[Rfam]
Description: Rfam assigns this 207-nucleotide RNA from Anaerocolumna cellulosilytica to the family "Group II catalytic intron D1-D4-5". NCBI's taxonomy places the organism under Bacteria, Bacillati, Clostridia, Lachnospirales, Anaerocolumna. Its family is annotated with Group II intron splicing in the Gene Ontology. The family has 139 seed sequences and 720 matches in Rfam 15.1. From the family's description: Group II introns are found in rRNA, tRNA and mRNA of organelles in fungi, plants and protists, and also in mRNA in bacteria.
RNA sequence: GAGAACUGAUAUUCCAAUGAGUGGAAUGAUGGUGUAACGCCCUGAAACGCUCACCCUGAUACUCCGAUAUGCGUGAGCUUGGCAAAAAGCAAAGCGUAUAAAGCUCGGUGAAGUCGGCUGAAAGCUACCGUAGUUUCAAUAAUUACUAUUGAAAACGAAAGCUUCCCAGAGGUGGGAGGUGUGGCUGAUAGGUCGGGGGUCUAUAAA
Numbered sequence: 001g002a003g004a005a006c007u008g009a010u011a012u013u014c015c016a017a018u019g020a021g022u023g024g025a026a027u028g029a030u031g032g033u034g035u036a037a038c039g040c041c042c043u044g045a046a047a048c049g050c051u052c053a054c055c056c057u058g059a060u061a062c063u064c065c066g067a068u069a070u071g072c073g074u075g076a077g078c079u080u081g082g083c084a085a086a087a088a089g090c091a092a093a094g095c096g097u098a099u100a101a102a103g104c105u106c107g108g109u110g111a112a113g114u115c116g117g118c119u120g121a122a123a124g125c126u127a128c129c130g131u132a133g134u135u136u137c138a139a140u141a142a143u144u145a146c147u148a149u150u151g152a153a154a155a156c157g158a159a160a161g162c163u164u165c166c167c168a169g170a171g172g173u174g175g176g177a178g179g180u181g182u183g184g185c186u187g188a189u190a191g192g193u194c195g196g197g198g199g200u201c202u203a204u205a206a207a
Base pairs, nucleotide, nucleotide: 018053019052020051021050022049023048031043032042034040054199055198056197057196064108065107066106067105068100069099070098071097072096074093077090078089079088080087115195116194117193118192119191123186124185125184126183127182128181129157130156131155135153136152137151138150139149140148141147161180162179163178164177165176166175167174168173